A member of the RNA family "Iron response element II" from Urocolius indicus, 32 nucleotides long. IRE, TFRC, SLC40A1, SDHB, SLC11A2, CDC42BPA, ACO2, ALAS2_H.SAPIENS, CDC14A, EPAS1, ALAS2, qoxD, Hao1, NDUFS1, transferrin, Aconitate. Taxonomically the source falls in Urocolius (Eukaryota, Sauria, Archosauria, Coelurosauria). The base pairs follow the family's consensus structure, which is taken from published work. The family has 30 seed sequences and 5,197 matches in Rfam 15.1. The match comes from Rfam's covariance-model search (34 bits).

RNA sequence: CUAUUAUCAGGAGCAGUGACUGCCUACAGUAG
Numbered sequence: 001c002u003a004u005u006a007u008c009a010g011g012a013g014c015a016g017u018g019a020c021u022g023c024c025u026a027c028a029g030u031a032g
Stems, first nucleotide, its partner, number of pairs: 001032005007026001009025003012021002014018001
Dot-bracket structure: (((((.(.((((((...).)).)))).)))))